[Rfam]
RNA: mir-263 microRNA precursor family
RNA sequence: UCGUAUUUGGCAAUGGCACUGGAAGAAUUCACGGGUUGGAUUUUUAUAAGUCCCGUGUUCUCUUAGUACCAUCACUUAUACGU
Numbered sequence: 001u002c003g004u005a006u007u008u009g010g011c012a013a014u015g016g017c018a019c020u021g022g023a024a025g026a027a028u029u030c031a032c033g034g035g036u037u038g039g040a041u042u043u044u045u046a047u048a049a050g051u052c053c054c055g056u057g058u059u060c061u062c063u064u065a066g067u068a069c070c071a072u073c074a075c076u077u078a079u080a081c082g083u
Base pairs, nucleotide, nucleotide: 002082003081004080005079006078009076010075013072014071015070016069018067020065021064022063023061025060026059030057031056032055033054034053